[Rfam]
RNA sequence: AACCAGUGAUGUAUGAUUUUGCCAAAUGACAUAGAAUGCUAUCACUCAUAAAACCGUUCCGUUUUGUGGUU
Numbered sequence: 001a002a003c004c005a006g007u008g009a010u011g012u013a014u015g016a017u018u019u020u021g022c023c024a025a026a027u028g029a030c031a032u033a034g035a036a037u038g039c040u041a042u043c044a045c046u047c048a049u050a051a052a053a054c055c056g057u058u059c060c061g062u063u064u065u066g067u068g069g070u071u
Stems, first nucleotide, its partner, number of pairs: 001071004